[Rfam]
RNA sequence: UGAAGCCUUGUCAAAUUCAGUGCCUCCUGCUCAGUGGAUGCCACUGGCCAAAAUGGCUGCCACAGUGAAGGUGUAGUUCAUGGGCCCCACAGAGCUUCACCAUGACUGCUGUGGAUAAAUAUGUACUACACACAGGC
Numbered sequence: 001u002g003a004a005g006c007c008u009u010g011u012c013a014a015a016u017u018c019a020g021u022g023c024c025u026c027c028u029g030c031u032c033a034g035u036g037g038a039u040g041c042c043a044c045u046g047g048c049c050a051a052a053a054u055g056g057c058u059g060c061c062a063c064a065g066u067g068a069a070g071g072u073g074u075a076g077u078u079c080a081u082g083g084g085c086c087c088c089a090c091a092g093a094g095c096u097u098c099a100c101c102a103u104g105a106c107u108g109c110u111g112u113g114g115a116u117a118a119a120u121a122u123g124u125a126c127u128a129c130a131c132a133c134a135g136g137c
Stems, first nucleotide, its partner, number of pairs: 002060001004058002018046005023040001025038003073129005078123001085114002090111003

Description:
Small nucleolar RNA SNORA5: a 137-nucleotide RNA sequence from Mastacembelus armatus. By type it is an H/ACA-box small nucleolar RNA. Rfam links the family to the GO terms RNA processing and nucleolus. ACA5 is a member of the H/ACA class of snoRNA that guide the sites of modification of uridines to pseudouridines. The family's consensus secondary structure was predicted with RNAfold.